[Rfam]
RNA sequence: UUGCAGGCCGGAGCGCUACUCCAUUUCAAUAGCCAUCCGGACCAGAAAAAAGGAGGAAAAUAAUUGCCGCCGGCCGGCGGUGCGGCAGUGUGGAGACCUGCCGUAAUCCUGUCAGGGUUUCGCUCUCUGGCAGGGAGGUACGCGAGCAGAGGCGAGCGUACUACGGCCUGAGCCCAUGUCU
Numbered sequence: 001u002u003g004c005a006g007g008c009c010g011g012a013g014c015g016c017u018a019c020u021c022c023a024u025u026u027c028a029a030u031a032g033c034c035a036u037c038c039g040g041a042c043c044a045g046a047a048a049a050a051a052g053g054a055g056g057a058a059a060a061u062a063a064u065u066g067c068c069g070c071c072g073g074c075c076g077g078c079g080g081u082g083c084g085g086c087a088g089u090g091u092g093g094a095g096a097c098c099u100g101c102c103g104u105a106a107u108c109c110u111g112u113c114a115g116g117g118u119u120u121c122g123c124u125c126u127c128u129g130g131c132a133g134g135g136a137g138g139u140a141c142g143c144g145a146g147c148a149g150a151g152g153c154g155a156g157c158g159u160a161c162u163a164c165g166g167c168c169u170g171a172g173c174c175c176a177u178g179u180c181u
Stems, first nucleotide, its partner, number of pairs: 006042001008040005015033004067080004072168005081105008090097002108134009137162007146153002
RNA: malK-I RNA
Organism: Ruminococcaceae bacterium D16